[Rfam]
RNA: Proteobacterial sRNA Xoo8
Organism: Xanthomonas campestris
RNA sequence: GCCAGGCCGACUGACCGCCCCACGCUGCGCGCGGUUCGGCGCAGCGGCAAUGCCCCGGCAGCCGCCGGGGCGCCUGUCCUGUCCUUUUCUGCCGGGUCGGUGCCGACCCGGCAGCUUUUGCAGCGGCGUGUAUGGUGCGUUACAGUCUCCGUCACGCGUGAUUUGUUAAAAUUCGGCUAAUCUCCCCCGAUUAGACAGCCGGUUCAGCGUCUGUCUGCAUUGCUCAUACAGACUUCGCCCAUGACCCAGCAACGCACUCUCAAGAACACCAUCCGCGCCACCGGCGUCGGCCUGCAUAGCGGCGACAAGGUCU
Numbered sequence: 001g002c003c004a005g006g007c008c009g010a011c012u013g014a015c016c017g018c019c020c021c022a023c024g025c026u027g028c029g030c031g032c033g034g035u036u037c038g039g040c041g042c043a044g045c046g047g048c049a050a051u052g053c054c055c056c057g058g059c060a061g062c063c064g065c066c067g068g069g070g071c072g073c074c075u076g077u078c079c080u081g082u083c084c085u086u087u088u089c090u091g092c093c094g095g096g097u098c099g100g101u102g103c104c105g106a107c108c109c110g111g112c113a114g115c116u117u118u119u120g121c122a123g124c125g126g127c128g129u130g131u132a133u134g135g136u137g138c139g140u141u142a143c144a145g146u147c148u149c150c151g152u153c154a155c156g157c158g159u160g161a162u163u164u165g166u167u168a169a170a171a172u173u174c175g176g177c178u179a180a181u182c183u184c185c186c187c188c189g190a191u192u193a194g195a196c197a198g199c200c201g202g203u204u205c206a207g208c209g210u211c212u213g214u215c216u217g218c219a220u221u222g223c224u225c226a227u228a229c230a231g232a233c234u235u236c237g238c239c240c241a242u243g244a245c246c247c248a249g250c251a252a253c254g255c256a257c258u259c260u261c262a263a264g265a266a267c268a269c270c271a272u273c274c275g276c277g278c279c280a281c282c283g284g285c286g287u288c289g290g291c292c293u294g295c296a297u298a299g300c301g302g303c304g305a306c307a308a309g310g311u312c313u
Base pairs, nucleotide, nucleotide: 001303002302003301004293005292006291007290008289009288010287011286017048023046024045025044026043027042028041029040030038031037052071053070054069055068056067057066072255073254081121082120089114090113091112092111093110094109095108096107097106098105099104126157127156128155129154130153134147135146136145159175160174161173176199178193179192181190182189204244205243207238208237209236213233214232215231216230217229277285278284279283294300295299
Dot-bracket structure: (((((((((((.....(.....(((((((((.....)).))))))).)...((((((........))))))((.......((......(((((((((((....))))))))))).....))....(((((...(((........))).....))))).(((...........)))(.((.((......)).)).....)....((.(((...(((((...........)))))..)))....)).........)).....................(((...)))))))))))((...)))))..........